[Rfam]
RNA sequence: GAGUGUGUUUGUUUGGCGAGUCUAACUGGAGUAUCCAGGAAGGCAUAGGGAAACCGAUACGGCCGCAGUCUUACGACCAGGGCCACCGUCUUCAAGGGCGGGGAGUCAAACGGACACGACCCGAAACCGGACGAUCUAUGCGAGUGCAAGGUGAAGCAUGGCGAAAGCCAUGUGGAGGCCUGUUAGGGUUGGUGUCUUACAAUACCCUCCCGUGACAUUCGUAUAGGGGUGAAAGGCCCAUCGAGUUCGGCAACAGCUGGUU
Numbered sequence: 001g002a003g004u005g006u007g008u009u010u011g012u013u014u015g016g017c018g019a020g021u022c023u024a025a026c027u028g029g030a031g032u033a034u035c036c037a038g039g040a041a042g043g044c045a046u047a048g049g050g051a052a053a054c055c056g057a058u059a060c061g062g063c064c065g066c067a068g069u070c071u072u073a074c075g076a077c078c079a080g081g082g083c084c085a086c087c088g089u090c091u092u093c094a095a096g097g098g099c100g101g102g103g104a105g106u107c108a109a110a111c112g113g114a115c116a117c118g119a120c121c122c123g124a125a126a127c128c129g130g131a132c133g134a135u136c137u138a139u140g141c142g143a144g145u146g147c148a149a150g151g152u153g154a155a156g157c158a159u160g161g162c163g164a165a166a167g168c169c170a171u172g173u174g175g176a177g178g179c180c181u182g183u184u185a186g187g188g189u190u191g192g193u194g195u196c197u198u199a200c201a202a203u204a205c206c207c208u209c210c211c212g213u214g215a216c217a218u219u220c221g222u223a224u225a226g227g228g229g230u231g232a233a234a235g236g237c238c239c240a241u242c243g244a245g246u247u248c249g250g251c252a253a254c255a256g257c258u259g260g261u262u
Stems, first nucleotide, its partner, number of pairs: 005117013020044004026038004048055002061084004068077003087100004120260002123257001127250006136226011147214001149181004156173007186211003191207002194205002228238003